[Rfam]
Nucleotides: 120
Stems, first nucleotide, its partner, number of pairs: 008058005015049002020046002022043001023040006060093008095115001097118001101113003
Number, partner (000 for none) and nucleotide at each position: 001000u002000a003000a004000g005000a006000u007000u008058g009057c010056u011055u012054c013000u014000a015049g016048g017000g018000u019000u020046c021045c022043g023040g024039u025038u026037c027036g028035a029000a030000c031000g032000g033000u034000u035028u036027c037026g038025a039024a040023u041000g042000u043022c044000u045021g046020g047000u048016c049015c050000g051000a052000g053000a054012g055011a056010a057009g058008c059000c060093a061092g062091c063090u064089u065088g066087c067086c068000a069000u070000c071000g072000g073000g074000c075000g076000c077000g078000a079000u080000c081000g082000c083000c084000c085000c086067g087066g088065c089064a090063g091062g092061u093060u094000a095115c096000a097118c098000g099000g100000c101113g102112g103111g104000a105000c106000a107000a108000a109000a110000g111103c112102c113101c114000g115095g116000g117000a118097g119000a120000g